Small nucleolar RNA R11/Z151: an 88-nucleotide RNA from Gossypium australe.
The family's consensus secondary structure was predicted with PFOLD.
The literature on the family includes a 2001 paper in J Mol Biol by Barneche et al., "Identification of 66 box C/D snoRNAs in Arabidopsis thaliana: extensive gene duplications generated multiple isoforms predicting new ribosomal RNA 2'-O-methylation sites".
[Rfam]
RNA sequence: AGGCUAAUGAUGAUAAUUUAAAAUAGUCUUAUUGGAUUUCAGUGAGAUAUUAUCAUCAAUGAUCUGAUUGUUACACACACUGAGGCCU
Numbered sequence: 001a002g003g004c005u006a007a008u009g010a011u012g013a014u015a016a017u018u019u020a021a022a023a024u025a026g027u028c029u030u031a032u033u034g035g036a037u038u039u040c041a042g043u044g045a046g047a048u049a050u051u052a053u054c055a056u057c058a059a060u061g062a063u064c065u066g067a068u069u070g071u072u073a074c075a076c077a078c079a080c081u082g083a084g085g086c087c088u
Base pairs, nucleotide, nucleotide: 001088002087003086004085005084